[Rfam]
Shown here is a 120-nucleotide RNA from Phyllobacterium zundukense, a member of the family "Alphaproteobacterial ar14".
Nucleotides: 120
Stems, first nucleotide, its partner, number of pairs: 007038003012033006043076003047072006084115011
Number, partner (000 for none) and nucleotide at each position: 001000a002000u003000c004000u005000a006000u007038c008037g009036a010000a011000u012033c013032g014031g015030u016029u017028c018000a019000c020000c021000u022000c023000c024000u025000c026000c027000c028017g029016a030015g031014c032013c033012g034000c035000u036009u037008c038007g039000a040000u041000c042000c043076g044075a045074c046000g047072g048071a049070c050069a051068g052067c053000a054000c055000a056000c057000c058000u059000c060000c061000u062000c063000c064000c065000g066000a067052g068051c069050u070049g071048u072047u073000g074045g075044u076043c077000g078000c079000u080000a081000u082000c083000g084115a085114a086113g087112c088111c089110c090109g091108g092107c093106g094105c095000a096000c097000c098000u099000c100000c101000u102000c103000c104000c105094g106093c107092g108091c109090c110089g111088g112087g113086c114085u115084u116000u117000u118000u119000u120000c
Description: The family's RNA type in Rfam is small RNA. The organism belongs to Phyllobacterium, within Bacteria. Its family is annotated with biological process involved in symbiotic interaction in the Gene Ontology.